[Rfam]
RNA sequence: CCCUGACAGUUGCAUGGUGCGACUGACAUUUGCCAAGACAGGAGAUCUAAAUG
Numbered sequence: 001c002c003c004u005g006a007c008a009g010u011u012g013c014a015u016g017g018u019g020c021g022a023c024u025g026a027c028a029u030u031u032g033c034c035a036a037g038a039c040a041g042g043a044g045a046u047c048u049a050a051a052u053g
Stems, first nucleotide, its partner, number of pairs: 002042004007025005
Dot-bracket structure: .((((.(((((.........))))).............))))...........

The record is a 53-nucleotide RNA, which matches "Mu-gpT-DE RNA" in Rfam. Pairs were carried over by alignment from the consensus structure, which is taken from published work. The family's RNA type in Rfam is small RNA. It scores 71 bits against the family's covariance model.